[Rfam]
About this RNA:
This 117-nucleotide RNA from Salipiger bermudensis belongs to the Rfam family "ALIL pseudoknot".
RNA sequence: UGCCUAUUUUGCCCAGGCGGAGCUCGACCGCCCACUGAAGCGAUGAUCGCCUUCAUCGAAGAGCACCGGAUGGACUUCGGGGUCGAGCCGAUCGGCAAGGUGCUGCCGAUCGCCCCG
Number, nucleotide and partner (000 for none) at each position: 001u000002g000003c000004c000005u000006a000007u000008u000009u000010u000011g000012c000013c000014c000015a000016g032017g031018c030019g029020g028021a000022g000023c000024u000025c000026g000027a000028c020029c019030g018031c017032c016033c000034a000035c000036u000037g000038a000039a000040g000041c000042g000043a000044u000045g000046a000047u000048c000049g000050c000051c000052u000053u000054c000055a000056u000057c000058g000059a000060a000061g000062a000063g000064c000065a000066c000067c000068g000069g000070a000071u000072g000073g000074a000075c000076u000077u000078c117079g116080g115081g114082g113083u000084c000085g000086a000087g000088c000089c112090g111091a000092u109093c108094g107095g106096c105097a104098a000099g000100g000101u000102g000103c000104u097105g096106c095107c094108g093109a092110u000111c090112g089113c082114c081115c080116c079117g078